Overview:
The record is a 143-nucleotide RNA from Durio zibethinus, which matches "Small nucleolar RNA snoR136" in Rfam. The organism belongs to Durio, within Eukaryota. The family's RNA type in Rfam is H/ACA-box small nucleolar RNA. On this family, see Chen and Wu, Nucleic Acids Res 2009: "Mining small RNA sequencing data: a new approach to identify small nucleolar RNAs in Arabidopsis". The family has 8 seed sequences and 452 matches in Rfam 15.1.
RNA sequence: AUGGCUUCUUUUUAUCAAUCUGAAACUUAAUUUUAAUGAUUAUAAAAUUUGAGUUUUUGUGAUAAAGGGAGCCUAAACAGAUUGUUCUCCUCGCUAUCCAGUACCUCAAUUUUGUGGCAUUUGGACGUCGGAGAACUAUAUUA
Number, nucleotide and partner (000 for none) at each position: 001a000002u075003g073004g072005c071006u000007u000008c068009u067010u066011u065012u064013u000014a000015u000016c000017a000018a000019u000020c000021u000022g057023a056024a055025a054026c053027u052028u051029a050030a000031u000032u000033u000034u047035a000036a000037u000038g000039a000040u000041u000042a000043u000044a000045a000046a000047a034048u000049u000050u029051g028052a027053g026054u025055u024056u023057u022058u000059g000060u000061g000062a000063u000064a012065a011066a010067g009068g008069g000070a000071g005072c004073c003074u000075a002076a000077a000078c000079a000080g000081a000082u000083u000084g136085u135086u134087c133088u132089c131090c130091u000092c127093g126094c000095u000096a000097u125098c124099c123100a122101g121102u000103a000104c000105c000106u000107c114108a113109a000110u000111u000112u000113u108114g107115u000116g000117g000118c000119a000120u000121u101122u100123g099124g098125a097126c093127g092128u000129c000130g090131g089132a088133g087134a086135a085136c084137u000138a000139u000140a000141u000142u000143a000